A member of the RNA family "bZIP non canonical Hac1/Xbp1 intron" from Hymenoscyphus fraxineus, 68 nucleotides long. About the family: bZIP intron RNA is a non-canonical intron that was first reported in HAC1 gene in yeast and XBP1 gene in Metazoa. On this family, see Hooks and Griffiths-Jones, RNA Biol 2011: "Conserved RNA structures in the non-canonical Hac1/Xbp1 intron". The family's RNA type in Rfam is small RNA. NCBI's taxonomy places the organism under Eukaryota, Dikarya, saccharomyceta, Helotiales, Hymenoscyphus.
[Rfam]
RNA sequence: AGUUCUUCCGAUAUGACACAACAUCCUGCCGCGAUGUUGUGCGACCUGCAGUGUCAGUCGGAAGAACA
Numbered sequence: 001a002g003u004u005c006u007u008c009c010g011a012u013a014u015g016a017c018a019c020a021a022c023a024u025c026c027u028g029c030c031g032c033g034a035u036g037u038u039g040u041g042c043g044a045c046c047u048g049c050a051g052u053g054u055c056a057g058u059c060g061g062a063a064g065a066a067c068a
Base pairs, nucleotide, nucleotide: 002067003066004065005064006063008061009060010059011058012057020038021037022036023035024034025033043055044054045053